[Rfam]
RNA sequence: CACCCGCAGCGGCAUGCGUCAGGGGCGCGGCUGGGUUUGGAACAGGGACCAGCCACGCGCGCGGCGGGGAAGCACGGGGGCCGGUAGUCGGGGGACUGCCGGCCCCUUUUUC
Numbered sequence: 001c002a003c004c005c006g007c008a009g010c011g012g013c014a015u016g017c018g019u020c021a022g023g024g025g026c027g028c029g030g031c032u033g034g035g036u037u038u039g040g041a042a043c044a045g046g047g048a049c050c051a052g053c054c055a056c057g058c059g060c061g062c063g064g065c066g067g068g069g070a071a072g073c074a075c076g077g078g079g080g081c082c083g084g085u086a087g088u089c090g091g092g093g094g095a096c097u098g099c100c101g102g103c104c105c106c107u108u109u110u111u112c
Base pairs, nucleotide, nucleotide: 003068004067005066006065007064009062010061011060012058013057016028017027018026029054030053031052032051033050034049037046038045076107077106078105079104080103081102082101083100084099085098086097087096088095089094

Rfam assigns this 112-nucleotide RNA sequence from Pseudoxanthomonas broegbernensis to the family "Xanthomonadaceae sRNA asX1". A reference for the family is Schmidtke et al. (2011), "Genome-wide transcriptome analysis of the plant pathogen Xanthomonas identifies sRNAs with putative virulence functions", Nucleic Acids Res. The family's RNA type in Rfam is small RNA. Pairs were carried over by alignment from the consensus structure, which was predicted with CMfinder. It scores 96 bits against the family's covariance model.